Record summary
The record is a 573-nucleotide part of an RNA from an uncultured bacterium, which matches "Bacterial small subunit ribosomal RNA" in Rfam.

RNA sequence: UCGAUUAGAGUUUGAUCCUGGCUCAGAACGAACGUUGGUGGCGUGGAUGAGGCAUGCAAGUCGAACGCGAAAGCCGCGAGGUGAGUAGCGUGGCGGACGGGCGAGUAACGCGUAAUCAAGCUGCCUGCGAGACGGGGAUAACCUCGGGAAACCGAGGCUAAGACCCGAUGGUCUGCGAGGUGCGCAUGCACUUGGCAGUAAAGGGCGGGAUCCUUCGGGAUCGCCUGCUCGCAGAGGUGAUUGCGUCCCAUCAGCUAGUUGGUAGGGUAACGGCCUACCAAGGCGACGACGGGUAGCCGGCCUUAGAGGGUGGUCGGCCGCACUGGGACUGAGACACUGCCCAGACUCCUACGGGAGGCUGCAGUCGAGAAUCUUCCGCAAUGGGCGAAAGCCUGACGGAGCGACGCCGCGUGGAGGAAGAAGGCCUUCGGGUUGUAAACUCCUGUCACGAGUCAAGAAGGUGCCGUUGCGAACAGCGAUGGUAUUUGACGUAAGCUCGAGAGGAAGCACUGGCUAACUCUGUGCCAGCAGCCGCGGUAAUACAGAGAGUGCAAACGUUGUUCGGAAUUACUG
Numbered sequence: 001u002c003g004a005u006u007a008g009a010g011u012u013u014g015a016u017c018c019u020g021g022c023u024c025a026g027a028a029c030g031a032a033c034g035u036u037g038g039u040g041g042c043g044u045g046g047a048u049g050a051g052g053c054a055u056g057c058a059a060g061u062c063g064a065a066c067g068c069g070a071a072a073g074c075c076g077c078g079a080g081g082u083g084a085g086u087a088g089c090g091u092g093g094c095g096g097a098c099g100g101g102c103g104a105g106u107a108a109c110g111c112g113u114a115a116u117c118a119a120g121c122u123g124c125c126u127g128c129g130a131g132a133c134g135g136g137g138a139u140a141a142c143c144u145c146g147g148g149a150a151a152c153c154g155a156g157g158c159u160a161a162g163a164c165c166c167g168a169u170g171g172u173c174u175g176c177g178a179g180g181u182g183c184g185c186a187u188g189c190a191c192u193u194g195g196c197a198g199u200a201a202a203g204g205g206c207g208g209g210a211u212c213c214u215u216c217g218g219g220a221u222c223g224c225c226u227g228c229u230c231g232c233a234g235a236g237g238u239g240a241u242u243g244c245g246u247c248c249c250a251u252c253a254g255c256u257a258g259u260u261g262g263u264a265g266g267g268u269a270a271c272g273g274c275c276u277a278c279c280a281a282g283g284c285g286a287c288g289a290c291g292g293g294u295a296g297c298c299g300g301c302c303u304u305a306g307a308g309g310g311u312g313g314u315c316g317g318c319c320g321c322a323c324u325g326g327g328a329c330u331g332a333g334a335c336a337c338u339g340c341c342c343a344g345a346c347u348c349c350u351a352c353g354g355g356a357g358g359c360u361g362c363a364g365u366c367g368a369g370a371a372u373c374u375u376c377c378g379c380a381a382u383g384g385g386c387g388a389a390a391g392c393c394u395g396a397c398g399g400a401g402c403g404a405c406g407c408c409g410c411g412u413g414g415a416g417g418a419a420g421a422a423g424g425c426c427u428u429c430g431g432g433u434u435g436u437a438a439a440c441u442c443c444u445g446u447c448a449c450g451a452g453u454c455a456a457g458a459a460g461g462u463g464c465c466g467u468u469g470c471g472a473a474c475a476g477c478g479a480u481g482g483u484a485u486u487u488g489a490c491g492u493a494a495g496c497u498c499g500a501g502a503g504g505a506a507g508c509a510c511u512g513g514c515u516a517a518c519u520c521u522g523u524g525c526c527a528g529c530a531g532c533c534g535c536g537g538u539a540a541u542a543c544a545g546a547g548a549g550u551g552c553a554a555a556c557g558u559u560g561u562u563c564g565g566a567a568u569u570a571c572u573g
Base pairs, nucleotide, nucleotide: 008024009023010022011021012020026563027562028561029560031559032558033557034556035555036554038410039409040408041407042406043405044403045402051366052365053364055363056362057361060094061093062092065091066090067089068088071086073082074081075080101321102320103319110246111245112244113243114242115241116240117239120238121237125234126233127232128231129230130229131228133167134166135165136164142157143156144155145154146153147152173198174197175196176195178193179192181190182189183188203226204225205224206223207222208221247293248292249291254284255283256282259281260280261279262278263277264276265275266274296318297317298316299315300311301310302309303308323344324343325342326341327340346357347356348355349354374400376399377398378397382395383394384393385392386391413443414442415441416440423434424433425432426431447504449499450498451497452496453495457490463483464482465481466480467479468478507552508551509550510549511548518547519546520545521544522543528535529534
Its Rfam clan is "SSU clan". It is one of the family's seed sequences.